[Rfam]
RNA sequence: CUGAUGUCUCCGCGCUGUAGCCGACCCCCGACCCGGCUGCAGCGCGGAGUACCUGU
Numbered sequence: 001c002u003g004a005u006g007u008c009u010c011c012g013c014g015c016u017g018u019a020g021c022c023g024a025c026c027c028c029c030g031a032c033c034c035g036g037c038u039g040c041a042g043c044g045c046g047g048a049g050u051a052c053c054u055g056u
Stems, first nucleotide, its partner, number of pairs: 002055002008049015